[Rfam]
RNA sequence: GCCCUUUUCUUUUUGCGCGGGCCCCCUAUAUUGGCUUUCGCCGGGUUCGCCCGGCUAUGGCGAUAAAUUGCGGUGUGCAAUAGGCACAGCGGACCCGGGGGCGGUACCCGGCGGCUCCACCACCUUCCUCGGUCUCCGGGGAAUAUGACGGGGCCGAACUAGGAUCGACGUGUGUUGAAAAGCACUGUUUUCGCCCGGGCUGAGUAACCCGUUAAAGGCUCAAAACUCACAAGUGCCAACGACAACGAAGCACUUGCUCUCGCUGCAUAAUUCUAGGGGCUAACGCCCUGAAGUUAUAAAGCGACAGCACGGUUCGGACCGGACCGGGUAACAGAAUCGGAAACC
Numbered sequence: 001g002c003c004c005u006u007u008u009c010u011u012u013u014u015g016c017g018c019g020g021g022c023c024c025c026c027u028a029u030a031u032u033g034g035c036u037u038u039c040g041c042c043g044g045g046u047u048c049g050c051c052c053g054g055c056u057a058u059g060g061c062g063a064u065a066a067a068u069u070g071c072g073g074u075g076u077g078c079a080a081u082a083g084g085c086a087c088a089g090c091g092g093a094c095c096c097g098g099g100g101g102c103g104g105u106a107c108c109c110g111g112c113g114g115c116u117c118c119a120c121c122a123c124c125u126u127c128c129u130c131g132g133u134c135u136c137c138g139g140g141g142a143a144u145a146u147g148a149c150g151g152g153g154c155c156g157a158a159c160u161a162g163g164a165u166c167g168a169c170g171u172g173u174g175u176u177g178a179a180a181a182g183c184a185c186u187g188u189u190u191u192c193g194c195c196c197g198g199g200c201u202g203a204g205u206a207a208c209c210c211g212u213u214a215a216a217g218g219c220u221c222a223a224a225a226c227u228c229a230c231a232a233g234u235g236c237c238a239a240c241g242a243c244a245a246c247g248a249a250g251c252a253c254u255u256g257c258u259c260u261c262g263c264u265g266c267a268u269a270a271u272u273c274u275a276g277g278g279g280c281u282a283a284c285g286c287c288c289u290g291a292a293g294u295u296a297u298a299a300a301g302c303g304a305c306a307g308c309a310c311g312g313u314u315c316g317g318a319c320c321g322g323a324c325c326g327g328g329u330a331a332c333a334g335a336a337u338c339g340g341a342a343a344c345c
Stems, first nucleotide, its partner, number of pairs: 040055005059195005070188007085174003089171003095111005112156007196211004201222003310326004319339001321337001
Shown here is a 345-nucleotide RNA sequence from Novosphingobium sp. TH158, a member of the family "Alphaproteobacteria transfer-messenger RNA". The family's RNA type in Rfam is non-coding RNA gene.